[Rfam]
RNA sequence: UUUAUAAAUUCCCUCUUCAUAAUACUCCAUAAAAAAACUUCCGUAUGAAUUUAUGGAGUAUUAUGAAGGGGGGAUUUGAGGU
Numbered sequence: 001u002u003u004a005u006a007a008a009u010u011c012c013c014u015c016u017u018c019a020u021a022a023u024a025c026u027c028c029a030u031a032a033a034a035a036a037a038c039u040u041c042c043g044u045a046u047g048a049a050u051u052u053a054u055g056g057a058g059u060a061u062u063a064u065g066a067a068g069g070g071g072g073g074a075u076u077u078g079a080g081g082u
Stems, first nucleotide, its partner, number of pairs: 007076019027056007
Rfam assigns this 82-nucleotide sequence from Hordeum vulgare to the family "mir-1 microRNA precursor family". Gene Ontology terms of the family: miRNA-mediated post-transcriptional gene silencing and RISC complex. Rfam 15.1 lists 4,474 matches to the family in 965 species. It scores 46 bits against the family's covariance model. Rfam's curators write: This family represents the microRNA (miRNA) mir-1 family. miRNAs are transcribed as ~70nt precursors (modelled here) and subsequently processed by the Dicer enzyme to give a ~22nt product.